SAM riboswitch aptamer (S box leader): a 114-nucleotide RNA sequence from Mangrovimonas sp. DI 80. The family is grouped with related families in Rfam's "SAM clan". Taxonomically the source falls in Mangrovimonas (Bacteria, Pseudomonadati, Bacteroidota, Flavobacteriales). A search with the family's covariance model found it, with a score of 80 bits.
RNA sequence: AUGUUAUCACGAAAGGCAGAGGGAAUAGACCCGUUGAAGCCUUAGCAACCCUUUAACUUUAAAGAAGGUGCUAAAUUCUACUAGUUGAAUACUACUCAAUUGGACAGAUAACCU
Numbered sequence: 001a002u003g004u005u006a007u008c009a010c011g012a013a014a015g016g017c018a019g020a021g022g023g024a025a026u027a028g029a030c031c032c033g034u035u036g037a038a039g040c041c042u043u044a045g046c047a048a049c050c051c052u053u054u055a056a057c058u059u060u061a062a063a064g065a066a067g068g069u070g071c072u073a074a075a076u077u078c079u080a081c082u083a084g085u086u087g088a089a090u091a092c093u094a095c096u097c098a099a100u101u102g103g104a105c106a107g108a109u110a111a112c113c114u
Base pairs, nucleotide, nucleotide: 001114003112004111005110006109007108008107013043014042015041016040017039021032022031023030026080027079028078029077044072045071046070047069049068050067051064052063053062054061076106081103082102083101084100085099086098087097088096